[Rfam]
A member of the RNA family "Streptomyces-metH RNA" from Streptomyces lavendofoliae, 119 nucleotides long. A search with the family's covariance model found it, with a score of 98 bits. The family's consensus secondary structure is taken from published work.
Nucleotides: 119
Base pairs, nucleotide, nucleotide: 060081061080062079063078065076067074068073084098085097087096088095089094
Number, partner (000 for none) and nucleotide at each position: 001000c002000g003000u004000c005000c006000c007000a008000c009000c010000a011000c012000c013000u014000g015000g016000a017000a018000c019000g020000a021000g022000a023000u024000g025000c026000c027000c028000g029000c030000c031000c032000c033000g034000g035000c036000g037000g038000g039000u040000a041000c042000a043000c044000g045000g046000u047000u048000a049000c050000u051000c052000u053000g054000g055000c056000c057000c058000g059000g060081u061080g062079c063078g064000c065076c066000c067074u068073c069000c070000c071000c072000c073068g074067a075000a076065g077000g078063c079062g080061c081060a082000a083000a084098g085097c086000c087096g088095a089094c090000a091000g092000c093000c094089g095088u096087c097085g098084c099000a100000u101000c102000c103000c104000u105000g106000g107000g108000a109000g110000c111000u112000c113000a114000u115000c116000c117000a118000u119000g